The record is an 84-nucleotide RNA from Microbacterium oryzae, which matches "ZMP/ZTP riboswitch aptamer (pfl RNA motif)" in Rfam. The source organism's lineage runs through Bacteria, Bacillati, Actinomycetes, Micrococcales and Microbacterium. The base pairs follow the family's consensus structure, which is taken from published work. A search with the family's covariance model found it, with a score of 51 bits.
[Rfam]
RNA sequence: UGUUCGCGUCGCGACUGGCGUUGAGGUGGUGAACCACCGGGAAGCGACCGAGACGGCAUUCGACCGCACGCCUGGGCCGGAGCG
Number, nucleotide and partner (000 for none) at each position: 001u000002g000003u053004u052005c000006g000007c000008g048009u047010c046011g045012c044013g000014a000015c041016u040017g072018g071019c070020g069021u068022u000023g000024a000025g000026g037027u036028g035029g034030u000031g000032a000033a000034c029035c028036a027037c026038c000039g000040g016041g015042a000043a000044g012045c011046g010047a009048c008049c000050g000051a000052g004053a003054c000055g000056g000057c000058a000059u000060u000061c079062g078063a000064c076065c075066g000067c000068a021069c020070g019071c018072c017073u000074g000075g065076g064077c000078c062079g061080g000081a000082g000083c000084g000